[Rfam]
RNA sequence: AAGAGUAGGAGUAGGUGGUUGCGGACUUGCGAUCGCAAGUCUGAGGAAAGUCCGGGCUCUCGAAAGGCCAGACUUGCUGGGUAAUGCCCAGUGCGGGUGACCGUGAGGAGAGUGCCACAGAAACAUACCGCCGAUGGCUUGUUUCGCUAUUUUGUAGCAAAACAUUCACAGGUAAGGGUGCAAGGGUGCGGUAAGAGCGCACCAGCAACGUCGAGAGGCGUUGGCUCGGUAAACCCCGGUGGAGAGCAAGGCAGAGAGCAACGGUUGGUCUUUUCCCCGUUCUCGUUUGUAGCGCCGCUAGAGGCGUCUGGCAACAGGCGUCCCAGAUAGAUAACUACCCUCUUUCUACCCAUCAUGGGCAAAUGCCCUGGUGGAGAAAGAGAACAGAACCCGGCUUACCGCCUGCUCUUCCCU
Numbered sequence: 001a002a003g004a005g006u007a008g009g010a011g012u013a014g015g016u017g018g019u020u021g022c023g024g025a026c027u028u029g030c031g032a033u034c035g036c037a038a039g040u041c042u043g044a045g046g047a048a049a050g051u052c053c054g055g056g057c058u059c060u061c062g063a064a065a066g067g068c069c070a071g072a073c074u075u076g077c078u079g080g081g082u083a084a085u086g087c088c089c090a091g092u093g094c095g096g097g098u099g100a101c102c103g104u105g106a107g108g109a110g111a112g113u114g115c116c117a118c119a120g121a122a123a124c125a126u127a128c129c130g131c132c133g134a135u136g137g138c139u140u141g142u143u144u145c146g147c148u149a150u151u152u153u154g155u156a157g158c159a160a161a162a163c164a165u166u167c168a169c170a171g172g173u174a175a176g177g178g179u180g181c182a183a184g185g186g187u188g189c190g191g192u193a194a195g196a197g198c199g200c201a202c203c204a205g206c207a208a209c210g211u212c213g214a215g216a217g218g219c220g221u222u223g224g225c226u227c228g229g230u231a232a233a234c235c236c237c238g239g240u241g242g243a244g245a246g247c248a249a250g251g252c253a254g255a256g257a258g259c260a261a262c263g264g265u266u267g268g269u270c271u272u273u274u275c276c277c278c279g280u281u282c283u284c285g286u287u288u289g290u291a292g293c294g295c296c297g298c299u300a301g302a303g304g305c306g307u308c309u310g311g312c313a314a315c316a317g318g319c320g321u322c323c324c325a326g327a328u329a330g331a332u333a334a335c336u337a338c339c340c341u342c343u344u345u346c347u348a349c350c351c352a353u354c355a356u357g358g359g360c361a362a363a364u365g366c367c368c369u370g371g372u373g374g375a376g377a378a379a380g381a382g383a384a385c386a387g388a389a390c391c392c393g394g395c396u397u398a399c400c401g402c403c404u405g406c407u408c409u410u411c412c413c414u
Stems, first nucleotide, its partner, number of pairs: 001410009011399001014339007022043009048397003052394005057246004066277002072240002075238002077091005092106001093104004107236002112234002114230003128177002130173003135168003185203006205225001206223007250296003260287005271279001303322008
RNA: Bacterial RNase P class A